[Rfam]
RNA sequence: GUUACCUCGUUUUGAGGUUGCACUUGCGUGUUAAUAGCCAAGUUCUUUGGCCGAAUUUGGUGGUUAGAGAAUC
Numbered sequence: 001g002u003u004a005c006c007u008c009g010u011u012u013u014g015a016g017g018u019u020g021c022a023c024u025u026g027c028g029u030g031u032u033a034a035u036a037g038c039c040a041a042g043u044u045c046u047u048u049g050g051c052c053g054a055a056u057u058u059g060g061u062g063g064u065u066a067g068a069g070a071a072u073c
Stems, first nucleotide, its partner, number of pairs: 001021002004018005031067005037061009
The record is a 73-nucleotide RNA, which matches "L13-Bacteroidia ribosomal protein leader" in Rfam. Rfam's curators put it in the seed alignment. For this family Rfam cites "Discovery of 20 novel ribosomal leader candidates in bacteria and archaea" (Eckert and Weinberg, BMC Microbiol, 2020).